[Rfam]
Shown here is a 65-nucleotide RNA from Micromonospora sp. M42, a member of the family "L31-Actinobacteria ribosomal protein leader".
Pairs were carried over by alignment from the consensus structure, which is taken from published work.
Clan: Ribosomal Protein L31 Leader clan.
Rfam classes the family as a cis-regulatory leader.

RNA sequence: CCGGUUCCGGUUCACGCCCGAGCCCGUCGCGGACGACGGGGAGCAUCGACGGCGACCCGGCGACC
Numbered sequence: 001c002c003g004g005u006u007c008c009g010g011u012u013c014a015c016g017c018c019c020g021a022g023c024c025c026g027u028c029g030c031g032g033a034c035g036a037c038g039g040g041g042a043g044c045a046u047c048g049a050c051g052g053c054g055a056c057c058c059g060g061c062g063a064c065c
Base pairs, nucleotide, nucleotide: 003065004064005063007060008059009058010057015054016053017052018051019048020047021046